This 243-nucleotide RNA from Streptomyces sp. wa22 belongs to the Rfam family "Streptomyces sRNA 4677". About the family: Located in the intergenic region between anti-sigma factor SCO4677 gene and a putative regulatory protein gene SCO4676. scr4677 expression requires the SCO4677 activity and scr4677 sRNA itself seem to affect the levels of the SCO4676-associated transcripts. By type it is a small RNA. The pairing is the family consensus, mapped onto this sequence. It scores 132 bits against the family's covariance model.
[Rfam]
RNA sequence: CGACCCGGUGGGCCACGACGUAAAAAGCUGUCAAGUACGUGGGAAAAGAACUUCCCCAACCACACCCGACCCCACCCUGGCCCCAGGUCACUCGCGCGGGUGACAUAUGGCAACUGGGCUGGAUUUGAGACGGGUUGAGUGUCAUAUGCUCGCCGCGACAACCCAUUCAGACAUGCGACGGCCCCCGUCGGGACGGCAAUCCCGGACGAGGGCCUGACCACCGAGGAAGUAGACGUCUUCCCG
Numbered sequence: 001c002g003a004c005c006c007g008g009u010g011g012g013c014c015a016c017g018a019c020g021u022a023a024a025a026a027g028c029u030g031u032c033a034a035g036u037a038c039g040u041g042g043g044a045a046a047a048g049a050a051c052u053u054c055c056c057c058a059a060c061c062a063c064a065c066c067c068g069a070c071c072c073c074a075c076c077c078u079g080g081c082c083c084c085a086g087g088u089c090a091c092u093c094g095c096g097c098g099g100g101u102g103a104c105a106u107a108u109g110g111c112a113a114c115u116g117g118g119c120u121g122g123a124u125u126u127g128a129g130a131c132g133g134g135u136u137g138a139g140u141g142u143c144a145u146a147u148g149c150u151c152g153c154c155g156c157g158a159c160a161a162c163c164c165a166u167u168c169a170g171a172c173a174u175g176c177g178a179c180g181g182c183c184c185c186c187g188u189c190g191g192g193a194c195g196g197c198a199a200u201c202c203c204g205g206a207c208g209a210g211g212g213c214c215u216g217a218c219c220a221c222c223g224a225g226g227a228a229g230u231a232g233a234c235g236u237c238u239u240c241c242c243g
Stems, first nucleotide, its partner, number of pairs: 007222004017072001088103006118154001120152003180214005186208003190203004225241005